This 120-nucleotide RNA from Devosia sp. I507 belongs to the Rfam family "Rhizobiales sRNA Atu_C8". The base pairs follow the family's consensus structure, which was predicted with CMfinder.

RNA sequence: GUCCAGUGCGGGCACUCAUUCUCGUAGUACGCAGGCGCAUCGGCAACGUGGGGUAGAACCCCGCGCGAAAGCUGGUGCGCCGAACACAGGUCCCGAAUGGGGCCUUUUUUAUUGCCUUUU
Numbered sequence: 001g002u003c004c005a006g007u008g009c010g011g012g013c014a015c016u017c018a019u020u021c022u023c024g025u026a027g028u029a030c031g032c033a034g035g036c037g038c039a040u041c042g043g044c045a046a047c048g049u050g051g052g053g054u055a056g057a058a059c060c061c062c063g064c065g066c067g068a069a070a071g072c073u074g075g076u077g078c079g080c081c082g083a084a085c086a087c088a089g090g091u092c093c094c095g096a097a098u099g100g101g102g103c104c105u106u107u108u109u110u111a112u113u114g115c116c117u118u119u120u
Stems, first nucleotide, its partner, number of pairs: 007029001009027001031115003034081010047063002050060002086106001088105007
The source organism's lineage runs through Bacteria, Alphaproteobacteria, Hyphomicrobiales, Devosiaceae and Devosia.